[Rfam]
RNA sequence: UAUUAGAUUGGCACAAAAGUAAUUGCGGUUUUUGCCGUUGAAAGUAACAGCAAAAACCGCAGUUACUUUUGAGCCAACCUAAUA
Numbered sequence: 001u002a003u004u005a006g007a008u009u010g011g012c013a014c015a016a017a018a019g020u021a022a023u024u025g026c027g028g029u030u031u032u033u034g035c036c037g038u039u040g041a042a043a044g045u046a047a048c049a050g051c052a053a054a055a056a057c058c059g060c061a062g063u064u065a066c067u068u069u070u071g072a073g074c075c076a077a078c079c080u081a082a083u084a
Stems, first nucleotide, its partner, number of pairs: 001084006008077005014071022037048004

A member of the RNA family "mir-548 microRNA precursor family" from Pongo abelii, 84 nucleotides long.
A reference for the family is Witten et al. (2010), "Ultra-high throughput sequencing-based small RNA discovery and discrete statistical biomarker analysis in a collection of cervical tumours and matched controls", BMC Biol.
The source organism's lineage runs through Eukaryota, Craniata, Vertebrata, Dipnotetrapodomorpha and Pongo.
Rfam links the family to the GO terms miRNA-mediated post-transcriptional gene silencing and RISC complex.
Pairs were carried over by alignment from the consensus structure, which was predicted with WAR.